[Rfam]
RNA sequence: GGGGGUGUGUGUCAGUGAUGGCACCGCUGAACAUUGAUCACUUAAAGGUUACUUUAGCUGAUCUGCUCAGUACAAGUGCAGUCACGUGGUCGAUCCAGCAACCAAGGGAUUGCCGAUGCCGCGGCGCUCGGUUCUAUCCAGUGGUUUCUUGAACGUCCGUUAUUUCCAAAUUUUGGGGGCUCGGGAAGUUUAAAUUCAAGACACCUCCAUGAAUGGCGCUUGCAGUGUGGCAGUCUGCCAUUUUUUUUU
Numbered sequence: 001g002g003g004g005g006u007g008u009g010u011g012u013c014a015g016u017g018a019u020g021g022c023a024c025c026g027c028u029g030a031a032c033a034u035u036g037a038u039c040a041c042u043u044a045a046a047g048g049u050u051a052c053u054u055u056a057g058c059u060g061a062u063c064u065g066c067u068c069a070g071u072a073c074a075a076g077u078g079c080a081g082u083c084a085c086g087u088g089g090u091c092g093a094u095c096c097a098g099c100a101a102c103c104a105a106g107g108g109a110u111u112g113c114c115g116a117u118g119c120c121g122c123g124g125c126g127c128u129c130g131g132u133u134c135u136a137u138c139c140a141g142u143g144g145u146u147u148c149u150u151g152a153a154c155g156u157c158c159g160u161u162a163u164u165u166c167c168a169a170a171u172u173u174u175g176g177g178g179g180c181u182c183g184g185g186a187a188g189u190u191u192a193a194a195u196u197c198a199a200g201a202c203a204c205c206u207c208c209a210u211g212a213a214u215g216g217c218g219c220u221u222g223c224a225g226u227g228u229g230g231c232a233g234u235c236u237g238c239c240a241u242u243u244u245u246u247u248u249u
Base pairs, nucleotide, nucleotide: 001208002207003206004205005204006203007202008201015085016084017083018082019081027070028069029068032065033064036063037062038061039060041057042056215239216238217237218234219233221232222231223230

Record summary
Arthropod 7SK RNA: a 249-nucleotide sequence from Dendroctonus ponderosae. Clan: 7SK clan. Pairs were carried over by alignment from the consensus structure, which is taken from published work. The organism belongs to Dendroctonus, within Eukaryota. The literature on the family includes a 2008 paper in Mol Biol Evol by Gruber et al., "Arthropod 7SK RNA". A search with the family's covariance model found it, with a score of 103 bits.